[Rfam]
RNA sequence: GAGAGGAGGCUCCCACGUGAUGCGAAGCAGCACGUUAUAAUUGGGGCCGACGACAUGCCGCCGACGCCAGAGGCGGAGGGGCGAUACCUUGA
Dot-bracket structure: .......((((((...(((.((.....)).))).........))))))........(((.((..((((...))))..)))))..........
GA-cis RNA: a 92-nucleotide RNA sequence. Rfam classes the family as a small RNA.